Notes: The family of this 266-nucleotide sequence from Melghirimyces thermohalophilus is "Bacterial large signal recognition particle RNA".
[Rfam]
RNA sequence: UCGCGCUAGACGGGGAGCUGGCGGUGCCCUGUACCCACAAUCCGCCUUAGUGGGGUUGAAAUCCCGCCCUAGGUUUUCACCGUGUGGGGUCCGGUUCAUACAAGAGGUGUUGACGAACAGGUCCUGCGCAACGGGAACCUCUGAACCGUGUCAGGUCCUGACGGAAGCAGCACUAAGGAGAUUCUCCCGUGUGCCGCAGGAGUGCCUGAUCCGAGCUGAUUGUAUGAAGCCCGCCCAGGCGAUGGAAAUCGACGGCGGGUGCGCGG
Numbered sequence: 001u002c003g004c005g006c007u008a009g010a011c012g013g014g015g016a017g018c019u020g021g022c023g024g025u026g027c028c029c030u031g032u033a034c035c036c037a038c039a040a041u042c043c044g045c046c047u048u049a050g051u052g053g054g055g056u057u058g059a060a061a062u063c064c065c066g067c068c069c070u071a072g073g074u075u076u077u078c079a080c081c082g083u084g085u086g087g088g089g090u091c092c093g094g095u096u097c098a099u100a101c102a103a104g105a106g107g108u109g110u111u112g113a114c115g116a117a118c119a120g121g122u123c124c125u126g127c128g129c130a131a132c133g134g135g136a137a138c139c140u141c142u143g144a145a146c147c148g149u150g151u152c153a154g155g156u157c158c159u160g161a162c163g164g165a166a167g168c169a170g171c172a173c174u175a176a177g178g179a180g181a182u183u184c185u186c187c188c189g190u191g192u193g194c195c196g197c198a199g200g201a202g203u204g205c206c207u208g209a210u211c212c213g214a215g216c217u218g219a220u221u222g223u224a225u226g227a228a229g230c231c232c233g234c235c236c237a238g239g240c241g242a243u244g245g246a247a248a249u250c251g252a253c254g255g256c257g258g259g260u261g262c263g264c265g266g
Base pairs, nucleotide, nucleotide: 001266002265003264004263005262006261009057010056011055012030013029014028015027017025018024019023034054035053036052037051038050063259064258065257066256067255068254072250073249074248075247076246079243081241082240083239085237086236087235088234092233093232096227097226098225099224100223101222104221105220106217107216108215115211116210118208119207120206121205122204123200124199125198126197127196128195129191130190132189133188134187135186136185137182139180140179141178142177148173149172150171151170156165157164158163

Rfam classes the family as a non-coding RNA gene.
The literature on the family includes a 2003 paper in Nucleic Acids Res by Rosenblad et al., "SRPDB: Signal Recognition Particle Database".
From the family's description: The signal recognition particle (SRP) is a universally conserved ribonucleoprotein involved in the co-translational targeting of proteins to membranes.